[Rfam]
RNA: MIR159 microRNA precursor family
Organism: Ipomoea nil
RNA sequence: GAAAAAAGAAGAGAGCUUUCUUCAGUCCAAACAUGGGUGGCAGUAGGAUUCAAUUAGCUUCCGACUCAUUCAUCCAAAUGCUGAGAUGAGAUGACGAUGAACCCGGCCUUGAUGACUAAUGAACACUGUCUCAGUAACUGAGUGAAUGAUGCGGGAGACAAGUUGGAUCUUAAGCUUCCUGUACUUGGACUGAAGGGAGCUCCCUUUUUAACCUUU
Dot-bracket structure: ............((((((((..(((((((......(.....................((.(((...((((....(................................................................)....))))...))).)).....................)......)))))))..))))))))..............